[Rfam]
RNA sequence: CUUACCAGCGAGAAGGCCAUGCGCAGAACCAAAACUGCGAAAGUGGUAAGGCUCCCGAAGAACCUGUAGGCUGUUGCAGGCGGCGAAAGCCUGCAAGGGGCAUUGGGUAAACAAAUUUGGACAUUGGCCGGUGAGGACAGCCCCUCGCCGGUCUUAU
Numbered sequence: 001c002u003u004a005c006c007a008g009c010g011a012g013a014a015g016g017c018c019a020u021g022c023g024c025a026g027a028a029c030c031a032a033a034a035c036u037g038c039g040a041a042a043g044u045g046g047u048a049a050g051g052c053u054c055c056c057g058a059a060g061a062a063c064c065u066g067u068a069g070g071c072u073g074u075u076g077c078a079g080g081c082g083g084c085g086a087a088a089g090c091c092u093g094c095a096a097g098g099g100g101c102a103u104u105g106g107g108u109a110a111a112c113a114a115a116u117u118u119g120g121a122c123a124u125u126g127g128c129c130g131g132u133g134a135g136g137a138c139a140g141c142c143c144c145u146c147g148c149c150g151g152u153c154u155u156a157u
Stems, first nucleotide, its partner, number of pairs: 001050007022039005029120005051101005063080006069142006082091003126153011
The record is a 157-nucleotide RNA sequence, which matches "FuFi-1 RNA" in Rfam. Rfam's curators put it in the seed alignment.